This 182-nucleotide RNA from Kushneria marisflavi belongs to the Rfam family "6S / SsrS RNA". For this family Rfam cites "6S RNA regulates E. coli RNA polymerase activity" (Wassarman and Storz, Cell, 2000). A search with the family's covariance model found it, with a score of 103 bits. The family's consensus secondary structure is taken from published work.
RNA sequence: CGUUCUCUGGGGUGUUUGCCAGUUGUUAUAGUCCCUCGAGCCUAUGCGCAGUACCCAGGGGGCCACUAUAAGUGGGCCUGUGUGCAUGUCCGCGCGACGGAAAGCCUGAUGGCCCACUUGCGGUCACCCACCUUGAACCAGUAGGUUCAGGGCCAGAACAACAGCGGCAUUCUGGAGAACCC
Numbered sequence: 001c002g003u004u005c006u007c008u009g010g011g012g013u014g015u016u017u018g019c020c021a022g023u024u025g026u027u028a029u030a031g032u033c034c035c036u037c038g039a040g041c042c043u044a045u046g047c048g049c050a051g052u053a054c055c056c057a058g059g060g061g062g063c064c065a066c067u068a069u070a071a072g073u074g075g076g077c078c079u080g081u082g083u084g085c086a087u088g089u090c091c092g093c094g095c096g097a098c099g100g101a102a103a104g105c106c107u108g109a110u111g112g113c114c115c116a117c118u119u120g121c122g123g124u125c126a127c128c129c130a131c132c133u134u135g136a137a138c139c140a141g142u143a144g145g146u147u148c149a150g151g152g153c154c155a156g157a158a159c160a161a162c163a164g165c166g167g168c169a170u171u172c173u174g175g176a177g178a179a180c181c182c
Stems, first nucleotide, its partner, number of pairs: 002180014017166003033152003038148005058129003062124003066120001072117007084105002089101004